[Rfam]
RNA sequence: UGAGUUUCAGGAGAUGGCAUUCCUCCGCAAACCGCCCGAACGGGCUGAUGAUGCCUACACGCCU
Numbered sequence: 001u002g003a004g005u006u007u008c009a010g011g012a013g014a015u016g017g018c019a020u021u022c023c024u025c026c027g028c029a030a031a032c033c034g035c036c037c038g039a040a041c042g043g044g045c046u047g048a049u050g051a052u053g054c055c056u057a058c059a060c061g062c063c064u
Stems, first nucleotide, its partner, number of pairs: 010026004016055006034045004
This 64-nucleotide RNA sequence from Paraburkholderia monticola belongs to the Rfam family "Fluoride riboswitch aptamer (crcB RNA motif)". Taxonomically the source falls in Paraburkholderia (Bacteria, Pseudomonadota, Betaproteobacteria, Burkholderiales). Rfam links the family to the GO terms positive regulation of gene expression and response to fluoride.